[Rfam]
RNA sequence: CAUAUGGUAUCAGACAGCCAAGUAGUAUGCUCUGAUGGCGAUAUGGCUUCUUUAGAGGU
Numbered sequence: 001c002a003u004a005u006g007g008u009a010u011c012a013g014a015c016a017g018c019c020a021a022g023u024a025g026u027a028u029g030c031u032c033u034g035a036u037g038g039c040g041a042u043a044u045g046g047c048u049u050c051u052u053u054a055g056a057g058g059u
Base pairs, nucleotide, nucleotide: 001045002044003043004042005041007039008038011034012033013032014031015029
The record is a 59-nucleotide RNA from Vespertiliibacter pulmonis, which matches "L31-Gammaproteobacteria ribosomal protein leader" in Rfam. Clan: Ribosomal Protein L31 Leader clan. Taxonomically the source falls in Vespertiliibacter (Bacteria, Pseudomonadati, Pseudomonadota, Pasteurellales). It is annotated as a cis-regulatory leader.